Notes
The family of this 137-nucleotide sequence from Pangasianodon hypophthalmus is "Small nucleolar RNA SNORA57". The match comes from Rfam's covariance-model search (108 bits). U99 belongs to the H/ACA class of snoRNAs which are thought to guide the sites of modification of uridines to pseudouridines, the target for this family is unknown.
RNA sequence: CCUCCAUUUCUUGGCAUACAUGCAGUUGCUCAGUACUCAUGUGUGUAAUGUCAGGAGGUAAAGCAGAGCCAGUGCUAUGUCUUCGGUGCCAGUAUGUUCAGAGUAUGCUGGUUCUAUCCUCAAUCACUGAAACACUC
Dot-bracket structure: (((((.........((((((.(.(((........)))).))))))........)))))...........(((((..............(((((((.........))))))).............)))))........
Rfam classes the family as an H/ACA-box small nucleolar RNA.